[Rfam]
RNA sequence: GGGAAACUCCCCGGCCCCGCUGUAGAGGGACCAUCAGCGACCGGGCCGGAAAUCAUAAGGUCCCAA
Numbered sequence: 001g002g003g004a005a006a007c008u009c010c011c012c013g014g015c016c017c018c019g020c021u022g023u024a025g026a027g028g029g030a031c032c033a034u035c036a037g038c039g040a041c042c043g044g045g046c047c048g049g050a051a052a053u054c055a056u057a058a059g060g061u062c063c064c065a066a
Base pairs, nucleotide, nucleotide: 013047014046015045016044017043018039019038020037021036022035027064028063029062030061031060032059034057
RNA: Edr gene ribosomal frameshift signal